[Rfam]
RNA sequence: ACCCCAACUUAAGUCAAGGACCAUCUCCUAUUUACUAUGAAUUGGUUCUGUUACAAGUUGGGGAGAUUGACAGCGACUCGCCCGCCCGAAGCCGUCUUGGCCAAGGGUAGACCGGCUUUCGUUUUGAUUGCUGGUCGCCAGAGUUGCAGAGUGAUGAGUUUGAGUUGAGGACCGCCUCUGCGCUUGAGCAGAUAGGUGGCGGUCUUCUUAGUAACAUUUCACACAUUC
Numbered sequence: 001a002c003c004c005c006a007a008c009u010u011a012a013g014u015c016a017a018g019g020a021c022c023a024u025c026u027c028c029u030a031u032u033u034a035c036u037a038u039g040a041a042u043u044g045g046u047u048c049u050g051u052u053a054c055a056a057g058u059u060g061g062g063g064a065g066a067u068u069g070a071c072a073g074c075g076a077c078u079c080g081c082c083c084g085c086c087c088g089a090a091g092c093c094g095u096c097u098u099g100g101c102c103a104a105g106g107g108u109a110g111a112c113c114g115g116c117u118u119u120c121g122u123u124u125u126g127a128u129u130g131c132u133g134g135u136c137g138c139c140a141g142a143g144u145u146g147c148a149g150a151g152u153g154a155u156g157a158g159u160u161u162g163a164g165u166u167g168a169g170g171a172c173c174g175c176c177u178c179u180g181c182g183c184u185u186g187a188g189c190a191g192a193u194a195g196g197u198g199g200c201g202g203u204c205u206u207c208u209u210a211g212u213a214a215c216a217u218u219u220c221a222c223a224c225a226u227u228c
Base pairs, nucleotide, nucleotide: 003062004061005060006059007058017049018048019047020046021045022044023043024041026039073147074146076144077143078142079141084108085107086106087105091101092100093099110136111135112134113133114132115131116130119127120126121125151222152221153220154219156217158215159214167207168206169205170204173201174200175199176198178191179190180189

Small nucleolar RNA snR191: a 228-nucleotide RNA sequence from Ophiobolus disseminans. Rfam links the family to the GO terms RNA processing and nucleolus. By type it is an H/ACA-box small nucleolar RNA.